[Rfam]
RNA sequence: UCCAUGUCGAAAUCUACGGAGAGUCUGUCUCACGAUAGACUCUCAUCACCGUACAUGUGAGAAAUUCGGAGUAAUCUUCAUCCACCAGGGGAAGCCGCGGUCGUUUUUCUGCAAAGAAAAAAAGGACGGGCGAUACCCAACUUCUUCAAGCCCGUGACGGCCUGGCGUGACUUCACGUCUGCAAUUGGCAUCAGAAAAGCAGGGACGGUAGACGGCUUUUUAAGCUCGUCAAGCCGAUCACCUCUGGGAGAGCCGUUGCGAAGAUUUGUGUCGGGAGACACUGGAGUGCGAUACGCGGCGUUACCACGGGACUCGUGUCCCUCUUCUCUUCGGGGUUGAGGUGGCCUUGUCCGAGUAACAAUUCAAUUCCGAUUACUCUGCUGAGGA
Numbered sequence: 001u002c003c004a005u006g007u008c009g010a011a012a013u014c015u016a017c018g019g020a021g022a023g024u025c026u027g028u029c030u031c032a033c034g035a036u037a038g039a040c041u042c043u044c045a046u047c048a049c050c051g052u053a054c055a056u057g058u059g060a061g062a063a064a065u066u067c068g069g070a071g072u073a074a075u076c077u078u079c080a081u082c083c084a085c086c087a088g089g090g091g092a093a094g095c096c097g098c099g100g101u102c103g104u105u106u107u108u109c110u111g112c113a114a115a116g117a118a119a120a121a122a123a124g125g126a127c128g129g130g131c132g133a134u135a136c137c138c139a140a141c142u143u144c145u146u147c148a149a150g151c152c153c154g155u156g157a158c159g160g161c162c163u164g165g166c167g168u169g170a171c172u173u174c175a176c177g178u179c180u181g182c183a184a185u186u187g188g189c190a191u192c193a194g195a196a197a198a199g200c201a202g203g204g205a206c207g208g209u210a211g212a213c214g215g216c217u218u219u220u221u222a223a224g225c226u227c228g229u230c231a232a233g234c235c236g237a238u239c240a241c242c243u244c245u246g247g248g249a250g251a252g253c254c255g256u257u258g259c260g261a262a263g264a265u266u267u268g269u270g271u272c273g274g275g276a277g278a279c280a281c282u283g284g285a286g287u288g289c290g291a292u293a294c295g296c297g298g299c300g301u302u303a304c305c306a307c308g309g310g311a312c313u314c315g316u317g318u319c320c321c322u323c324u325u326c327u328c329u330u331c332g333g334g335g336u337u338g339a340g341g342u343g344g345c346c347u348u349g350u351c352c353g354a355g356u357a358a359c360a361a362u363u364c365a366a367u368u369c370c371g372a373u374u375a376c377u378c379u380g381c382u383g384a385g386g387a
Stems, first nucleotide, its partner, number of pairs: 003057004021042009067371005076263004149163002152160002164179006181259004187254003202243003300359005